[Rfam]
RNA sequence: UGAAAGUGUCUUCCCGAUCUGGUUCUGAUUGUUGCGUGAGAACUCCAAUCAUCCCAGCUCAGAAGGCACUUUCACUAUUUCAAAUCACCCUACCCACCAGUUUCAUCGGUGGAUCGAG
Numbered sequence: 001u002g003a004a005a006g007u008g009u010c011u012u013c014c015c016g017a018u019c020u021g022g023u024u025c026u027g028a029u030u031g032u033u034g035c036g037u038g039a040g041a042a043c044u045c046c047a048a049u050c051a052u053c054c055c056a057g058c059u060c061a062g063a064a065g066g067c068a069c070u071u072u073c074a075c076u077a078u079u080u081c082a083a084a085u086c087a088c089c090c091u092a093c094c095c096a097c098c099a100g101u102u103u104c105a106u107c108g109g110u111g112g113a114u115c116g117a118g
Stems, first nucleotide, its partner, number of pairs: 002073012016060002019057004026051004031046001034043001100115001102113004